[Rfam]
RNA sequence: UCGUGGGUGACUGCGAAUCUGAAGGAAGCCGGAUGGCAAAUCUCUGGUCUGACGUACAGAAAUCACAUCAGGCUAUGCAUGAGGGUAAGUCUGCCAUACAAGUCGAAGCCCAAUAACUACACGGAAUCAUGCAUGGUAAAUGUGGCAGAUGGAUGGAGAGAAGGAACGUGUG
Numbered sequence: 001u002c003g004u005g006g007g008u009g010a011c012u013g014c015g016a017a018u019c020u021g022a023a024g025g026a027a028g029c030c031g032g033a034u035g036g037c038a039a040a041u042c043u044c045u046g047g048u049c050u051g052a053c054g055u056a057c058a059g060a061a062a063u064c065a066c067a068u069c070a071g072g073c074u075a076u077g078c079a080u081g082a083g084g085g086u087a088a089g090u091c092u093g094c095c096a097u098a099c100a101a102g103u104c105g106a107a108g109c110c111c112a113a114u115a116a117c118u119a120c121a122c123g124g125a126a127u128c129a130u131g132c133a134u135g136g137u138a139a140a141u142g143u144g145g146c147a148g149a150u151g152g153a154u155g156g157a158g159a160g161a162a163g164g165a166a167c168g169u170g171u172g
Stems, first nucleotide, its partner, number of pairs: 001016006030170002037164001041159006047150005063145005072137003076133007083111004089104001091102002
RNA: Group II catalytic intron D1-D4-3